[Rfam]
The family of this 98-nucleotide RNA from Entomospira culicis is "Bacterial small signal recognition particle RNA". It is annotated as a non-coding RNA gene. The signal recognition particle (SRP) is a universally conserved ribonucleoprotein involved in the co-translational targeting of proteins to membranes. NCBI's taxonomy places the organism under Bacteria, Spirochaetota, Spirochaetales, Spirochaetaceae, Entomospira. Its family is annotated with SRP-dependent cotranslational protein targeting to membrane, signal sequence recognition and signal recognition particle, plasma membrane targeting in the Gene Ontology.

RNA sequence: UGCUAGGCUCCGUGCGGUUAUUUAUUAUCAAACCCCGCCAGGUUCGGAAGAAAGCAACGGUAGAUAGUGAAUGAUGCGAUGCGGGUGGCUUAUCAUCA
Numbered sequence: 001u002g003c004u005a006g007g008c009u010c011c012g013u014g015c016g017g018u019u020a021u022u023u024a025u026u027a028u029c030a031a032a033c034c035c036c037g038c039c040a041g042g043u044u045c046g047g048a049a050g051a052a053a054g055c056a057a058c059g060g061u062a063g064a065u066a067g068u069g070a071a072u073g074a075u076g077c078g079a080u081g082c083g084g085g086u087g088g089c090u091u092a093u094c095a096u097c098a
Base pairs, nucleotide, nucleotide: 004092005091006090007089008088009085010084011083012082013081014080015076017075018074019073020072021071022070024068025067026066027065028064029063035060036059037058043052044051045050
Dot-bracket structure: ...((((((((((((.((((((.((((((.....(((.....(((....))).....)))..)))))).)))))))...))))))..)))))......